[Rfam]
A member of the RNA family "mir-208 microRNA precursor family" from Adiantum capillus-veneris, 83 nucleotides long.
RNA sequence: UCUUACACGCACGCUUUUUGUUCGCAUGAUUUACCUGAGUAUUGAGCAAAAAUCACACGAACAAAAAGCGUGUGUGUAAGAGA
Number, nucleotide and partner (000 for none) at each position: 001u000002c000003u079004u078005a077006c076007a000008c074009g073010c000011a071012c070013g069014c068015u067016u066017u065018u064019u000020g062021u000022u000023c059024g058025c000026a000027u055028g054029a053030u052031u051032u050033a000034c000035c000036u000037g000038a000039g000040u000041a000042u000043u000044g000045a000046g000047c000048a000049a000050a032051a031052a030053u029054c028055a027056c000057a000058c024059g023060a000061a000062c020063a000064a018065a017066a016067a015068g014069c013070g012071u011072g000073u009074g008075u000076g006077u005078a004079a003080g000081a000082g000083a000
For this family Rfam cites "Cloning and expression of new microRNAs from zebrafish" (Kloosterman et al., Nucleic Acids Res, 2006).
Lineage of the source: Eukaryota > Viridiplantae > Polypodiidae > Pteridineae > Adiantum.